This 117-nucleotide RNA sequence from Selaginella moellendorffii belongs to the Rfam family "U5 spliceosomal RNA".
The source organism's lineage runs through Eukaryota, Streptophytina, Selaginellales, Selaginelloideae and Selaginella.
Rfam's curators write: U5 RNA is a component of both types of known spliceosome. The precise function of this molecule is unknown, though it is known that the 5' loop is required for splice site selection and p220 binding, and that both the 3' stem-loop and the Sm site are important for Sm protein binding and cap methylation.
The family's consensus secondary structure is taken from published work.
It is annotated as a spliceosomal small nuclear RNA.
RNA sequence: GAGCCGUGUGGUCAGCGCAAAGCGAACUAUUCUUUCGCCUUUUACUAAAGAAUACCGUGUGCUGGCCACAUUAAAGCGGCAUAUCAAAAUUUUUGGGCCGCCUCUGCAAAGGGGCAC
Numbered sequence: 001g002a003g004c005c006g007u008g009u010g011g012u013c014a015g016c017g018c019a020a021a022g023c024g025a026a027c028u029a030u031u032c033u034u035u036c037g038c039c040u041u042u043u044a045c046u047a048a049a050g051a052a053u054a055c056c057g058u059g060u061g062c063u064g065g066c067c068a069c070a071u072u073a074a075a076g077c078g079g080c081a082u083a084u085c086a087a088a089a090u091u092u093u094u095g096g097g098c099c100g101c102c103u104c105u106g107c108a109a110a111g112g113g114g115c116a117c
Base pairs, nucleotide, nucleotide: 003080004079005078006077009068010067011066012065013064014063015062016061017060018059019058028054029053030052031051032050033049034048035047097117100115101114102113103112104111